[Rfam]
RNA sequence: AUGUACACUGAGUGGCCAGAUUAUUAUGAUCUGGGAACGCAUAAUAAUCUGGCCACUCAGUAUAUAC
Numbered sequence: 001a002u003g004u005a006c007a008c009u010g011a012g013u014g015g016c017c018a019g020a021u022u023a024u025u026a027u028g029a030u031c032u033g034g035g036a037a038c039g040c041a042u043a044a045u046a047a048u049c050u051g052g053c054c055a056c057u058c059a060g061u062a063u064a065u066a067c
Stems, first nucleotide, its partner, number of pairs: 004064002007061011019049010

Rfam assigns this 67-nucleotide RNA sequence from Pipistrellus kuhlii to the family "mir-9256 microRNA precursor family". The family has 8 seed sequences and 31,772 matches in Rfam 15.1. It scores 80 bits against the family's covariance model. Rfam links the family to the GO terms RISC complex and miRNA-mediated post-transcriptional gene silencing. Lineage of the source: Eukaryota > Deuterostomia > Theria > Vespertilionidae > Pipistrellus.